[Rfam]
RNA sequence: CCCGCCGGGCCGCGAGCCUUCUUGUAAGGACCGACGAAAGAAACGGAGAAAGUACCCACCCCGCCAGGCCGCUGCCCGCACUCACCCGAACGGGUGACGGGUGAUCAGAUCAGCGGUUCGGGUGAGGUACGGUCGGCGCUACAACAGCACACGAAAUGGCCCCCGGCAGGACGGCAAUCCUGGUCGAGGGCCUGACCACCAAGGAAGAAGUAGCUUCCCG
Numbered sequence: 001c002c003c004g005c006c007g008g009g010c011c012g013c014g015a016g017c018c019u020u021c022u023u024g025u026a027a028g029g030a031c032c033g034a035c036g037a038a039a040g041a042a043a044c045g046g047a048g049a050a051a052g053u054a055c056c057c058a059c060c061c062c063g064c065c066a067g068g069c070c071g072c073u074g075c076c077c078g079c080a081c082u083c084a085c086c087c088g089a090a091c092g093g094g095u096g097a098c099g100g101g102u103g104a105u106c107a108g109a110u111c112a113g114c115g116g117u118u119c120g121g122g123u124g125a126g127g128u129a130c131g132g133u134c135g136g137c138g139c140u141a142c143a144a145c146a147g148c149a150c151a152c153g154a155a156a157u158g159g160c161c162c163c164c165g166g167c168a169g170g171a172c173g174g175c176a177a178u179c180c181u182g183g184u185c186g187a188g189g190g191c192c193u194g195a196c197c198a199c200c201a202a203g204g205a206a207g208a209a210g211u212a213g214c215u216u217c218c219c220g
Stems, first nucleotide, its partner, number of pairs: 007200002016069004082097006113137002116134001158192005164186002168181004203218005
A member of the RNA family "Streptomyces sRNA 4677" from Actinacidiphila bryophytorum, 220 nucleotides long. The pairing is the family consensus, mapped onto this sequence. Rfam 15.1 lists 563 matches to the family in 285 species. A search with the family's covariance model found it, with a score of 85 bits. Rfam describes the family as follows. Located in the intergenic region between anti-sigma factor SCO4677 gene and a putative regulatory protein gene SCO4676. scr4677 expression requires the SCO4677 activity and scr4677 sRNA itself seem to affect the levels of the SCO4676-associated transcripts. NCBI's taxonomy places the organism under Bacteria, Bacillati, Actinomycetota, Streptomycetaceae, Actinacidiphila.